This 85-nucleotide RNA from Molossus molossus belongs to the Rfam family "mir-449 microRNA precursor family". A reference for the family is Linsen et al. (2010), "Small RNA expression and strain specificity in the rat", BMC Genomics. Gene Ontology terms of the family: RISC complex and miRNA-mediated post-transcriptional gene silencing. Pairs were carried over by alignment from the consensus structure, which was predicted with RNAalifold. The organism belongs to Molossus, within Eukaryota. Its Rfam clan is "mir-34 clan".
RNA sequence: UGUGUGCGAUGGGCUGGCAGUGUGCUGUUAGCUGGUUGAUGUGAGCGACACCAGCUGACACACAGCUGCCGUCUCAUUGCAUGUA
Numbered sequence: 001u002g003u004g005u006g007c008g009a010u011g012g013g014c015u016g017g018c019a020g021u022g023u024g025c026u027g028u029u030a031g032c033u034g035g036u037u038g039a040u041g042u043g044a045g046c047g048a049c050a051c052c053a054g055c056u057g058a059c060a061c062a063c064a065g066c067u068g069c070c071g072u073c074u075c076a077u078u079g080c081a082u083g084u085a
Base pairs, nucleotide, nucleotide: 001085002084003083004082005081006080007079008078009077010076011075012074013073015071016070017069018068019067020066021065022063023062024061027059028058029057030056031055032054033053034052035051036050040047041046